[Rfam]
RNA sequence: AAUUUCAUACCGCUUAAUCCUUUGAUGAAUGAAAAGGAGCGGGGGAACCAGUGAGGUUUGCUAUGCAGGCUUCGAGGGGUGAAUCCUGAAGAGCACACCAUAUGUGCUUAGUACAGGUAGGGCGACUCUCACGCCCGAAUCCGACAGCUAACCUCGUCAGCGUAUCUAGAGAGACUUU
Number, nucleotide and partner (000 for none) at each position: 001a000002a000003u000004u000005u000006c000007a000008u000009a000010c000011c162012g161013c160014u159015u000016a000017a000018u038019c037020c036021u035022u034023u033024g000025a000026u000027g000028a000029a000030u000031g000032a000033a023034a022035a021036g020037g019038a018039g157040c156041g155042g154043g153044g152045g000046a000047a000048c000049c076050a000051g000052u000053g000054a000055g000056g000057u000058u000059u000060g000061c000062u000063a000064u000065g000066c000067a000068g000069g000070c000071u000072u000073c000074g000075a000076g049077g142078g141079g140080u000081g000082a000083a000084u000085c117086c116087u115088g114089a000090a000091g000092a000093g000094c000095a000096c000097a000098c000099c000100a000101u000102a000103u000104g000105u000106g000107c000108u000109u000110a000111g000112u000113a000114c088115a087116g086117g085118u000119a000120g136121g135122g134123c133124g000125a000126c000127u000128c000129u000130c000131a000132c000133g123134c122135c121136c120137g000138a000139a000140u079141c078142c077143g000144a000145c000146a000147g000148c000149u000150a000151a000152c044153c043154u042155c041156g040157u039158c000159a014160g013161c012162g011163u000164a000165u000166c000167u000168a000169g000170a000171g000172a000173g000174a000175c000176u000177u000178u000
Source information: A member of the RNA family "c-di-AMP riboswitch aptamer (ydaO/yuaA leader)" from Paenibacillus sp. TCA20, 178 nucleotides long. NCBI's taxonomy places the organism under Bacteria, Bacillati, Bacillota, Paenibacillaceae, Paenibacillus.